[Rfam]
RNA sequence: GUCUGGAGUAGAAGCGGUCAGGGCAUCAUGGCCCGGGACAUUGCUCUGGUC
Numbered sequence: 001g002u003c004u005g006g007a008g009u010a011g012a013a014g015c016g017g018u019c020a021g022g023g024c025a026u027c028a029u030g031g032c033c034c035g036g037g038a039c040a041u042u043g044c045u046c047u048g049g050u051c
Stems, first nucleotide, its partner, number of pairs: 005047006015036001018038002021034003024030001
The record is a 51-nucleotide RNA sequence from Marinobacterium nitratireducens, which matches "Xanthine riboswitch aptamer (NMT1 RNA)" in Rfam. The source organism's lineage runs through Bacteria, Pseudomonadota, Gammaproteobacteria, Oceanospirillales and Marinobacterium.